Description:
This 402-nucleotide RNA from Tepidiphilus thermophilus belongs to the Rfam family "Bacterial RNase P class A". It scores 278 bits against the family's covariance model. Rfam links the family to the GO terms tRNA processing, dimeric ribonuclease P complex and ribonuclease P activity. About the family: Ribonuclease P (RNase P) is a ubiquitous endoribonuclease, found in archaea, bacteria and eukarya as well as chloroplasts and mitochondria. Rfam classes the family as a ribozyme. The family's consensus secondary structure is taken from published work.

RNA sequence: GAAGUCCGCCCGGCAGUCGCUGCGCGCCGCAAGGCGCGGAGAGGAAAGUCCGGGCUCCACAGAGCAGGAUGCCGGCUAACGGCCGGGCGCCGCGAGGCGACGGAAAGUGCCACAGAGAACAGACCGCCGAUGGCCCGCGAGGGCUCAGGCAAGGGUGAAACGGUGGCCGGGGAGACCCGGCGCGGGGGCGAUCCCUGCGGGUAAGAGCCCACCGCGUCUCCGGUAACGGAGGCGGCACGGUAAACCCCAUCCGGAGCAAGGCCGAAUAGGGGAGCGAUGGCGUGGCUCGCGCCGCUCCCGGGUUGGCCGCUCGAGCCCGUCGGCAACGGCGGGCCUAGAGGAAUGACUGCCCCGCAUCGCACGAUGCGCGACAGAACCCGGCUUAAGCGGCGGGCUUCUCUU
Numbered sequence: 001g002a003a004g005u006c007c008g009c010c011c012g013g014c015a016g017u018c019g020c021u022g023c024g025c026g027c028c029g030c031a032a033g034g035c036g037c038g039g040a041g042a043g044g045a046a047a048g049u050c051c052g053g054g055c056u057c058c059a060c061a062g063a064g065c066a067g068g069a070u071g072c073c074g075g076c077u078a079a080c081g082g083c084c085g086g087g088c089g090c091c092g093c094g095a096g097g098c099g100a101c102g103g104a105a106a107g108u109g110c111c112a113c114a115g116a117g118a119a120c121a122g123a124c125c126g127c128c129g130a131u132g133g134c135c136c137g138c139g140a141g142g143g144c145u146c147a148g149g150c151a152a153g154g155g156u157g158a159a160a161c162g163g164u165g166g167c168c169g170g171g172g173a174g175a176c177c178c179g180g181c182g183c184g185g186g187g188g189c190g191a192u193c194c195c196u197g198c199g200g201g202u203a204a205g206a207g208c209c210c211a212c213c214g215c216g217u218c219u220c221c222g223g224u225a226a227c228g229g230a231g232g233c234g235g236c237a238c239g240g241u242a243a244a245c246c247c248c249a250u251c252c253g254g255a256g257c258a259a260g261g262c263c264g265a266a267u268a269g270g271g272g273a274g275c276g277a278u279g280g281c282g283u284g285g286c287u288c289g290c291g292c293c294g295c296u297c298c299c300g301g302g303u304u305g306g307c308c309g310c311u312c313g314a315g316c317c318c319g320u321c322g323g324c325a326a327c328g329g330c331g332g333g334c335c336u337a338g339a340g341g342a343a344u345g346a347c348u349g350c351c352c353c354g355c356a357u358c359g360c361a362c363g364a365u366g367c368g369c370g371a372c373a374g375a376a377c378c379c380g381g382c383u384u385a386a387g388c389g390g391c392g393g394g395c396u397u398c399u400c401u402u
Stems, first nucleotide, its partner, number of pairs: 001398010011387001012351007020041002023038006046384003050381005055256004062288004067252005072086005087101001088099004102247002107245002109241003124154002126150003131147002133144004162213005214236001215234008260308004270299006279293005315334008